[Rfam]
RNA: Small nucleolar RNA SNORA13
RNA sequence: AGCCUUUGUGUUGCCAAUUCACUUUUGGAAACUAGUGAAUGUGGUGUCAAAAACGGUGGAAGCUUUGCAGCCUUUUCCUGCCCUUGAAUUUUAAUUUGAAUAUUGUUGGUGUAGGAGCUGGAUAAAGUAAGAGUU
Numbered sequence: 001a002g003c004c005u006u007u008g009u010g011u012u013g014c015c016a017a018u019u020c021a022c023u024u025u026u027g028g029a030a031a032c033u034a035g036u037g038a039a040u041g042u043g044g045u046g047u048c049a050a051a052a053a054c055g056g057u058g059g060a061a062g063c064u065u066u067g068c069a070g071c072c073u074u075u076u077c078c079u080g081c082c083c084u085u086g087a088a089u090u091u092u093a094a095u096u097u098g099a100a101u102a103u104u105g106u107u108g109g110u111g112u113a114g115g116a117g118c119u120g121g122a123u124a125a126a127g128u129a130a131g132a133g134u135u
Base pairs, nucleotide, nucleotide: 002057003056004055006053007052009049010048012046013045014044015043017040018039019038020037021036022035023034062128063127064126065125066122068120069119070118071117076116077115078114079113080112081111082109083108086104087103